The family of this 46-nucleotide RNA sequence from Anopheles gambiae is "Histone 3' UTR stem-loop".
Nucleotides: 046
Stems, first nucleotide, its partner, number of pairs: 006021006
Number, partner (000 for none) and nucleotide at each position: 001000c002000c003000a004000u005000c006021g007020g008019c009018u010017c011016u012000u013000u014000u015000c016011a017010g018009a019008g020007c021006c022000a023000c024000c025000g026000a027000u028000u029000c030000u031000u032000u033000a034000u035000u036000a037000a038000g039000a040000a041000c042000a043000u044000c045000u046000u
About this RNA: Lineage of the source: Eukaryota > Altocrustacea > Insecta > Aparaglossata > Anopheles gambiae.